[Rfam]
A member of the RNA family "mir-184 microRNA precursor family" from Hymenochirus boettgeri, 83 nucleotides long. Its family is annotated with gene silencing by miRNA and RISC complex in the Gene Ontology. The family's consensus secondary structure was predicted with PFOLD.
RNA sequence: GCCAGUAUCACUUCUUAUCACUUUUCCAGCCAGCUUUUCAUGACAAACUGUUGGAGGGAGAACUGAUAAGGCUGUGUGACUGC
Numbered sequence: 001g002c003c004a005g006u007a008u009c010a011c012u013u014c015u016u017a018u019c020a021c022u023u024u025u026c027c028a029g030c031c032a033g034c035u036u037u038u039c040a041u042g043a044c045a046a047a048c049u050g051u052u053g054g055a056g057g058g059a060g061a062a063c064u065g066a067u068a069a070g071g072c073u074g075u076g077u078g079a080c081u082g083c
Stems, first nucleotide, its partner, number of pairs: 013071008022062006030054002
For this family Rfam cites "The developmental miRNA profiles of zebrafish as determined by small RNA cloning" (Chen et al., Genes Dev, 2005). The organism belongs to Hymenochirus, within Eukaryota. Rfam 15.1 lists 948 matches to the family in 823 species. A search with the family's covariance model found it, with a score of 56 bits.